[Rfam]
RNA sequence: AAAAGGGGCUUUCGCCGCAUGCGGCGCCCAAUCCCUACGCCGUCGGGCGGAAUGGUGAUCAAUACGUUCUGAGGGCAAAAUCUCUGACAACGGGGCGGCUGGCCAACGCUGCUGGCGCUCCA
Numbered sequence: 001a002a003a004a005g006g007g008g009c010u011u012u013c014g015c016c017g018c019a020u021g022c023g024g025c026g027c028c029c030a031a032u033c034c035c036u037a038c039g040c041c042g043u044c045g046g047g048c049g050g051a052a053u054g055g056u057g058a059u060c061a062a063u064a065c066g067u068u069c070u071g072a073g074g075g076c077a078a079a080a081u082c083u084c085u086g087a088c089a090a091c092g093g094g095g096c097g098g099c100u101g102g103c104c105a106a107c108g109c110u111g112c113u114g115g116c117g118c119u120c121c122a
Stems, first nucleotide, its partner, number of pairs: 008076005013026005027047003031043001048071007093120004098116005104111002
This 122-nucleotide RNA sequence from Fasciolopsis buskii belongs to the Rfam family "U11 spliceosomal RNA". NCBI's taxonomy places the organism under Eukaryota, Eumetazoa, Digenea, Plagiorchiida, Fasciolopsis. The base pairs follow the family's consensus structure, which is taken from published work.